A member of the RNA family "Lysine riboswitch aptamer" from Clostridium sp. cel8, 175 nucleotides long. Lineage of the source: Bacteria > Bacillati > Clostridia > Clostridiaceae > Clostridium.
RNA sequence: AAUUAGGAUAGAGGAGCAUUGUUUAUCAGUAAAAUAGUUGAGAUAAGCACGAUGAAGCUAUUUGAAAGGAAACUUUGCCGAAACUUUCAGCAAAGGCUUUGAUGCUGAAAAGUUGGUUUUACUUAAAAUAUAUGUAAAACUGCCACAAUAAUGUUUGUGGAGAGCUAUCAUUCAA
Numbered sequence: 001a002a003u004u005a006g007g008a009u010a011g012a013g014g015a016g017c018a019u020u021g022u023u024u025a026u027c028a029g030u031a032a033a034a035u036a037g038u039u040g041a042g043a044u045a046a047g048c049a050c051g052a053u054g055a056a057g058c059u060a061u062u063u064g065a066a067a068g069g070a071a072a073c074u075u076u077g078c079c080g081a082a083a084c085u086u087u088c089a090g091c092a093a094a095g096g097c098u099u100u101g102a103u104g105c106u107g108a109a110a111a112g113u114u115g116g117u118u119u120u121a122c123u124u125a126a127a128a129u130a131u132a133u134g135u136a137a138a139a140c141u142g143c144c145a146c147a148a149u150a151a152u153g154u155u156u157g158u159g160g161a162g163a164g165c166u167a168u169c170a171u172u173c174a175a
Stems, first nucleotide, its partner, number of pairs: 007169005016078003021073004032063008082114004086109007115141008124132002143160006
Annotation
A search with the family's covariance model found it, with a score of 118 bits. Riboswitches are metabolite binding domains within certain messenger RNAs that serve as precision sensors for their corresponding targets. Allosteric rearrangement of mRNA structure is mediated by ligand binding, and this results in modulation of gene expression. This family includes riboswitches that sense lysine in a number of genes involved in lysine metabolism, including lysC. Its family is annotated with lysine biosynthetic process in the Gene Ontology.